Guanidine-I riboswitch aptamer: a 105-nucleotide RNA from Pseudomonas sp. SSM44. The organism belongs to Pseudomonas, within Bacteria. Its family is annotated with regulation of gene expression in the Gene Ontology. A reference for the family is Barrick et al. (2004), "New RNA motifs suggest an expanded scope for riboswitches in bacterial genetic control", Proc Natl Acad Sci U S A. About the family: This family represents a conserved RNA structure found upstream of the ykkC and yxkD genes in Bacillus subtilis and related genes in other bacteria. The function of this family is unclear although it has been suggested that it may function to switch on efflux pumps and detoxification systems in response to harmful environmental molecules.
[Rfam]
RNA sequence: AACUAGGCGAACUAGGGUUCCGGCCUGCAAUGCAGGUGACUGGUCCGAGAGUUUUCCGGUUCUCAAGGAAUGAGAACUACACGGCGGGAUAAAAGCCCGGGAGAC
Dot-bracket structure: ......(.((((..((...(((((((((...))))))..).)).))....)))).).((((((((.....)))))))).(.[...(((.......))).)..]..